[Rfam]
RNA: MIR6217 microRNA precursor family
RNA sequence: UGACUAUAAAAUAAUUUAUUAUAUAGCCACUUUGAGUUAUGAUAAUUACUAUAUUAAUUUACGAGAUUAUAGUAACUCCUUACUAAGUGGUUUACUAUAAUGUUAUGGUUAAUAUCCCCAUGUGUUAUAGAAACCCAACUAUCGUAAAUAUGUAUUGACAUUGUUAUAAAUUAAUAUAUAAAAUUAUUGUAAAUAGAGGUGGCUAUAGAAUACCUUGUUUUGUAGCUG
Numbered sequence: 001u002g003a004c005u006a007u008a009a010a011a012u013a014a015u016u017u018a019u020u021a022u023a024u025a026g027c028c029a030c031u032u033u034g035a036g037u038u039a040u041g042a043u044a045a046u047u048a049c050u051a052u053a054u055u056a057a058u059u060u061a062c063g064a065g066a067u068u069a070u071a072g073u074a075a076c077u078c079c080u081u082a083c084u085a086a087g088u089g090g091u092u093u094a095c096u097a098u099a100a101u102g103u104u105a106u107g108g109u110u111a112a113u114a115u116c117c118c119c120a121u122g123u124g125u126u127a128u129a130g131a132a133a134c135c136c137a138a139c140u141a142u143c144g145u146a147a148a149u150a151u152g153u154a155u156u157g158a159c160a161u162u163g164u165u166a167u168a169a170a171u172u173a174a175u176a177u178a179u180a181a182a183a184u185u186a187u188u189g190u191a192a193a194u195a196g197a198g199g200u201g202g203c204u205a206u207a208g209a210a211u212a213c214c215u216u217g218u219u220u221u222g223u224a225g226c227u228g
Stems, first nucleotide, its partner, number of pairs: 001228002004225011017212004022207012037192011050178012065165003069161002074155001080147004087142006093132001095130009107117002